Annotation: This 146-nucleotide sequence from Marinomonas piezotolerans belongs to the Rfam family "FMN riboswitch aptamer (RFN element)". Gene Ontology term of the family: FMN binding. NCBI's taxonomy places the organism under Bacteria, Pseudomonadota, Gammaproteobacteria, Oceanospirillales, Marinomonas.

RNA sequence: AUCGAACUUCGGGGCGGGGUGAAAUUCCCCACCGGCGGUGAUUUUGCAUAGCAAACAGCCCGCGAGCGCCUUCUUUUUUGAGAAGGGUCAGCAGAUCAGGUGUGACUCCUGAGCCGACGGUAUAGUCCGGAUGAAAGAAGAUCGAC
Numbered sequence: 001a002u003c004g005a006a007c008u009u010c011g012g013g014g015c016g017g018g019g020u021g022a023a024a025u026u027c028c029c030c031a032c033c034g035g036c037g038g039u040g041a042u043u044u045u046g047c048a049u050a051g052c053a054a055a056c057a058g059c060c061c062g063c064g065a066g067c068g069c070c071u072u073c074u075u076u077u078u079u080g081a082g083a084a085g086g087g088u089c090a091g092c093a094g095a096u097c098a099g100g101u102g103u104g105a106c107u108c109c110u111g112a113g114c115c116g117a118c119g120g121u122a123u124a125g126u127c128c129g130g131a132u133g134a135a136a137g138a139a140g141a142u143c144g145a146c
Stems, first nucleotide, its partner, number of pairs: 003144003007140004017029003031126002033116002035063004058114002066092002096112005118129003